[Rfam]
RNA sequence: CUGUGGCCGAAGCGCCCGACUCCGAGGCCGGCCCCAGAAAACCCCGAGCGAGUAGGGGGCGGUGCGCGGGGAGGGAGGAGAGCCGGGGGCCCGGGAGGUUGGUGGGUGUCGGGGGUGGAGAUGUAGAAGACGUGACGCCGCGGCCCGGCCGGUGCCAGACCAGCGGACGCGGUGCCCGCGGUUGCAGCCGGAUCCCGGGCGCUGCAGCUUCGGAGGCGGCUGUCCCGAGAGUGGCGGCGGCGGAGACACCCAGCGCUACGCCCAGCUCCCGGGCGCCGGGCUCGCCGCGCGCUAGGGCCGGCGGCGCGAGGCUGGGGGCCCGCGGGCGGGGCCGCGCGCUGCCAGGCGGGAGGCUGGGGGGCCGGGGCCGGGGCCGUGCCCCGGAGCGGCUCGGAGGCCGGGGCCGGGGCCGGGGGGCGGCGGCCCCCCGCGCGGCUCCCGCGGCUCGGGGUCCCCGGCAGGGCCCCGGAGGGCCCAUG
Dot-bracket structure: ............................(((((((........(((...........((((((((((...............(.(((....((.........((((((...................................((..((.((((((..............)))))).))..........))....(.(.((((((......(((.(....).))).....)))))).).)......)))))).)).....))).)....((.(((((((..................))))).)).)).........................))))))))))...)))........)))))))................(((...)))..........((((((.....(.(................(.((..........)).)(((...)))..).)))))))............
Numbered sequence: 001c002u003g004u005g006g007c008c009g010a011a012g013c014g015c016c017c018g019a020c021u022c023c024g025a026g027g028c029c030g031g032c033c034c035c036a037g038a039a040a041a042c043c044c045c046g047a048g049c050g051a052g053u054a055g056g057g058g059g060c061g062g063u064g065c066g067c068g069g070g071g072a073g074g075g076a077g078g079a080g081a082g083c084c085g086g087g088g089g090c091c092c093g094g095g096a097g098g099u100u101g102g103u104g105g106g107u108g109u110c111g112g113g114g115g116u117g118g119a120g121a122u123g124u125a126g127a128a129g130a131c132g133u134g135a136c137g138c139c140g141c142g143g144c145c146c147g148g149c150c151g152g153u154g155c156c157a158g159a160c161c162a163g164c165g166g167a168c169g170c171g172g173u174g175c176c177c178g179c180g181g182u183u184g185c186a187g188c189c190g191g192a193u194c195c196c197g198g199g200c201g202c203u204g205c206a207g208c209u210u211c212g213g214a215g216g217c218g219g220c221u222g223u224c225c226c227g228a229g230a231g232u233g234g235c236g237g238c239g240g241c242g243g244a245g246a247c248a249c250c251c252a253g254c255g256c257u258a259c260g261c262c263c264a265g266c267u268c269c270c271g272g273g274c275g276c277c278g279g280g281c282u283c284g285c286c287g288c289g290c291g292c293u294a295g296g297g298c299c300g301g302c303g304g305c306g307c308g309a310g311g312c313u314g315g316g317g318g319c320c321c322g323c324g325g326g327c328g329g330g331g332c333c334g335c336g337c338g339c340u341g342c343c344a345g346g347c348g349g350g351a352g353g354c355u356g357g358g359g360g361g362c363c364g365g366g367g368c369c370g371g372g373g374c375c376g377u378g379c380c381c382c383g384g385a386g387c388g389g390c391u392c393g394g395a396g397g398c399c400g401g402g403g404c405c406g407g408g409g410c411c412g413g414g415g416g417g418c419g420g421c422g423g424c425c426c427c428c429c430g431c432g433c434g435g436c437u438c439c440c441g442c443g444g445c446u447c448g449g450g451g452u453c454c455c456c457g458g459c460a461g462g463g464c465c466c467c468g469g470a471g472g473g474c475c476c477a478u479g
Stems, first nucleotide, its partner, number of pairs: 029364007044349003058343010083265001085263003092255002103252006144191002148179002151176006196240001198238001200236006212225003216221001270308002273305002275302005381389003400467006411461001413459001430447001432445002448456003
Shown here is a 479-nucleotide RNA sequence from Propithecus coquereli, a member of the family "FGF-2 internal ribosome entry site (IRES)". The literature on the family includes a 1995 paper in Mol Cell Biol by Vagner et al., "Alternative translation of human fibroblast growth factor 2 mRNA occurs by internal entry of ribosomes". The source organism's lineage runs through Eukaryota, Opisthokonta, Vertebrata, Lemuriformes and Propithecus. A search with the family's covariance model found it, with a score of 315 bits.